This 97-nucleotide sequence from Camellia sinensis belongs to the Rfam family "Small nucleolar RNA Z43". The organism belongs to Camellia, within Eukaryota. The family has 7 seed sequences and 859 matches in Rfam 15.1. The match comes from Rfam's covariance-model search (86 bits). Rfam links the family to the GO terms nucleolus and RNA processing. It is annotated as a C/D-box small nucleolar RNA.

[Rfam]
RNA sequence: GUACGAUGAUGAUUACAUGUGAUUGGUCUCGUUCGUCGUAAUGGCAGCCAUUGCCUUGCCGACCAUCCUGAUAUAUCACCACCCAUAAACUGAGUCC
Numbered sequence: 001g002u003a004c005g006a007u008g009a010u011g012a013u014u015a016c017a018u019g020u021g022a023u024u025g026g027u028c029u030c031g032u033u034c035g036u037c038g039u040a041a042u043g044g045c046a047g048c049c050a051u052u053g054c055c056u057u058g059c060c061g062a063c064c065a066u067c068c069u070g071a072u073a074u075a076u077c078a079c080c081a082c083c084c085a086u087a088a089a090c091u092g093a094g095u096c097c
Stems, first nucleotide, its partner, number of pairs: 001097001003095002046057002